[Rfam]
RNA sequence: GUUCCUUCAUCUCCUUAUCAUUUCCGCUGUCCAGACAGAUUAAUGUUAAAAUGACCUGGACGGAGAACUGAUAAGGGCAAGCAGGGAC
Numbered sequence: 001g002u003u004c005c006u007u008c009a010u011c012u013c014c015u016u017a018u019c020a021u022u023u024c025c026g027c028u029g030u031c032c033a034g035a036c037a038g039a040u041u042a043a044u045g046u047u048a049a050a051a052u053g054a055c056c057u058g059g060a061c062g063g064a065g066a067a068c069u070g071a072u073a074a075g076g077g078c079a080a081g082c083a084g085g086g087a088c
Stems, first nucleotide, its partner, number of pairs: 012077009022067003025063001030059002
Dot-bracket structure: ...........(((((((((.((((....((..........................))...).))).)))))))))...........